Notes: This 110-nucleotide RNA sequence from Kitasatospora cheerisanensis belongs to the Rfam family "Streptomyces RNA 4115". The source organism's lineage runs through Bacteria, Actinomycetes, Kitasatosporales, Kitasatospora and Kitasatospora cheerisanensis. Rfam describes the family as follows. Identified by deep sequencing of transcriptome at the end of exponential growth phase. Sequencing size consistent with notrthern blot size. Streptomyces specific. It scores 60 bits against the family's covariance model. By type it is a small RNA.
RNA sequence: CUGUGGAUCGGCCCGCCGCCGAGGACCCGGCGGGCCGGGGGAUGACGCUGCCUCAAUCCCCGCGGGCAGCGGCGCGUCCGGGAGGGCAUGCGGAUGCCCUCCCGGGCCGU
Numbered sequence: 001c002u003g004u005g006g007a008u009c010g011g012c013c014c015g016c017c018g019c020c021g022a023g024g025a026c027c028c029g030g031c032g033g034g035c036c037g038g039g040g041g042a043u044g045a046c047g048c049u050g051c052c053u054c055a056a057u058c059c060c061c062g063c064g065g066g067c068a069g070c071g072g073c074g075c076g077u078c079c080g081g082g083a084g085g086g087c088a089u090g091c092g093g094a095u096g097c098c099c100u101c102c103c104g105g106g107c108c109g110u
Stems, first nucleotide, its partner, number of pairs: 001109001006075001009037010038043001046071008076107013